A member of the RNA family "Small nucleolar RNA SNORA42/SNORA80 family" from Jaculus jaculus, 134 nucleotides long.

RNA sequence: GCAUGGAUUUGGAUUUAUGGCAGGCCUGUACACCUGCUCCUUUCAUAGUGUCCCAUGCCUGAGCAACUUGUGGCCCCAAACCAUUGCCUGACCUCUCUCUGUACACUGCUGGCACUGACGUGGAUCAGACACUG
Numbered sequence: 001g002c003a004u005g006g007a008u009u010u011g012g013a014u015u016u017a018u019g020g021c022a023g024g025c026c027u028g029u030a031c032a033c034c035u036g037c038u039c040c041u042u043u044c045a046u047a048g049u050g051u052c053c054c055a056u057g058c059c060u061g062a063g064c065a066a067c068u069u070g071u072g073g074c075c076c077c078a079a080a081c082c083a084u085u086g087c088c089u090g091a092c093c094u095c096u097c098u099c100u101g102u103a104c105a106c107u108g109c110u111g112g113c114a115c116u117g118a119c120g121u122g123g124a125u126c127a128g129a130c131a132c133u134g
Stems, first nucleotide, its partner, number of pairs: 001058004005053004015048006022041003026036001071127003075123002082117002087112002089108002094103001

Rfam links the family to the GO terms nucleolus and RNA processing. For this family Rfam cites "A computational screen for mammalian pseudouridylation guide H/ACA RNAs" (Schattner et al., RNA, 2006). From the family's description: The members of this family belong to the H/ACA class of snoRNAs that guide the sites of modification of uridines to pseudouridines. Human ACA42 (SNORA42) was cloned from HeLa cells by immunoprecipitation with anti-GAR1 antibody. Its is predicted to guide the pseudouridylation of residues U109 and U572 of 18S rRNA. ACA42 shares the same host gene with ACA26, ACA46, ACA50. It is annotated as an H/ACA-box small nucleolar RNA.